[Rfam]
RNA sequence: AGGAGGAACAGCAGCAGUUGCUAUGGCAAGUCUGGAAGCCUGGAUUCAGCCUCCGCAGGAACUACGGGGCUCUCCAUCCGCAGGGCCUGGAGGCUCCGGGGCGGG
Numbered sequence: 001a002g003g004a005g006g007a008a009c010a011g012c013a014g015c016a017g018u019u020g021c022u023a024u025g026g027c028a029a030g031u032c033u034g035g036a037a038g039c040c041u042g043g044a045u046u047c048a049g050c051c052u053c054c055g056c057a058g059g060a061a062c063u064a065c066g067g068g069g070c071u072c073u074c075c076a077u078c079c080g081c082a083g084g085g086c087c088u089g090g091a092g093g094c095u096c097c098g099g100g101g102c103g104g105g
Stems, first nucleotide, its partner, number of pairs: 002097004009089003012085001015083001020078001022076001025073002029071003032067003036063001039059004